[Rfam]
RNA sequence: GCACCAAAGCCGCGAAGCUCACCCCACACAGGCCGUUUUGCCUCAUCGCCAGACGGCCUCCUUCGUGAGCGGGCUAAGGUCUGAGCAUUCCAAUCCCUCUCUUCCGAGAUCGACUCUAGCCGGGUCCGGUCUGAACAGACUGAGCGUCGCACCAGAAAGCCAGUGCCGCGCCGGGGCUUGUGCACCCUCGAGACACCCUCGGGUGUCCGCAGUGGACCGCACGUACCCUCCCUCUUUACGAGGGUCCCUGAGACGCGCCUCGGCGCAGAGGGACGGAUGGCGGACUUUGGGACACGGCGCAGGGAUCGGGCGUCCGCUCUACCGUCUUCGCCGGCCUGCGACUCGCUCGUCGGCCAGCGGGAUUUUGGAGGGGUGGUGUCCUUCAGUGCACUUCGCGGCUCGCCCAUAUCGGAGCCUCGCGCUCCUGCGAAACUCGAUUCAGACUACUCUGGUGC
Numbered sequence: 001g002c003a004c005c006a007a008a009g010c011c012g013c014g015a016a017g018c019u020c021a022c023c024c025c026a027c028a029c030a031g032g033c034c035g036u037u038u039u040g041c042c043u044c045a046u047c048g049c050c051a052g053a054c055g056g057c058c059u060c061c062u063u064c065g066u067g068a069g070c071g072g073g074c075u076a077a078g079g080u081c082u083g084a085g086c087a088u089u090c091c092a093a094u095c096c097c098u099c100u101c102u103u104c105c106g107a108g109a110u111c112g113a114c115u116c117u118a119g120c121c122g123g124g125u126c127c128g129g130u131c132u133g134a135a136c137a138g139a140c141u142g143a144g145c146g147u148c149g150c151a152c153c154a155g156a157a158a159g160c161c162a163g164u165g166c167c168g169c170g171c172c173g174g175g176g177c178u179u180g181u182g183c184a185c186c187c188u189c190g191a192g193a194c195a196c197c198c199u200c201g202g203g204u205g206u207c208c209g210c211a212g213u214g215g216a217c218c219g220c221a222c223g224u225a226c227c228c229u230c231c232c233u234c235u236u237u238a239c240g241a242g243g244g245u246c247c248c249u250g251a252g253a254c255g256c257g258c259c260u261c262g263g264c265g266c267a268g269a270g271g272g273a274c275g276g277a278u279g280g281c282g283g284a285c286u287u288u289g290g291g292a293c294a295c296g297g298c299g300c301a302g303g304g305a306u307c308g309g310g311c312g313u314c315c316g317c318u319c320u321a322c323c324g325u326c327u328u329c330g331c332c333g334g335c336c337u338g339c340g341a342c343u344c345g346c347u348c349g350u351c352g353g354c355c356a357g358c359g360g361g362a363u364u365u366u367g368g369a370g371g372g373g374u375g376g377u378g379u380c381c382u383u384c385a386g387u388g389c390a391c392u393u394c395g396c397g398g399c400u401c402g403c404c405c406a407u408a409u410c411g412g413a414g415c416c417u418c419g420c421g422c423u424c425c426u427g428c429g430a431a432a433c434u435c436g437a438u439u440c441a442g443a444c445u446a447c448u449c450u451g452g453u454g455c
Stems, first nucleotide, its partner, number of pairs: 001455001004452003009399007017070005031058008081442005089305003112126005127142006144300006165285001400430004
This 455-nucleotide RNA from Ganoderma sinense belongs to the Rfam family "Nuclear RNase P". It scores 50 bits against the family's covariance model. The source organism's lineage runs through Eukaryota, Opisthokonta, Dikarya, Polyporales and Ganoderma sinense.